Shown here is an 87-nucleotide RNA sequence from Aotus nancymaae, a member of the family "mir-515 microRNA precursor family". Rfam 15.1 lists 1,056 matches to the family in 27 species. Its family is annotated with RISC complex and miRNA-mediated post-transcriptional gene silencing in the Gene Ontology.
RNA sequence: UCUCAUGCUGUGACUCUCCAAAGGAAAGCGCUUUCUGUUGUCUGAAAGAAAUGAAUGAGUUUUCCUUUAGAGAGUUGCCGUGUGAGA
Numbered sequence: 001u002c003u004c005a006u007g008c009u010g011u012g013a014c015u016c017u018c019c020a021a022a023g024g025a026a027a028g029c030g031c032u033u034u035c036u037g038u039u040g041u042c043u044g045a046a047a048g049a050a051a052u053g054a055a056u057g058a059g060u061u062u063u064c065c066u067u068u069a070g071a072g073a074g075u076u077g078c079c080g081u082g083u084g085a086g087a
Base pairs, nucleotide, nucleotide: 001087002086003085004084005083007081008080010078011077012076013075014074016072017071018070020068021067022066023065024064025063026062027061028060029059031057033055034054035053039051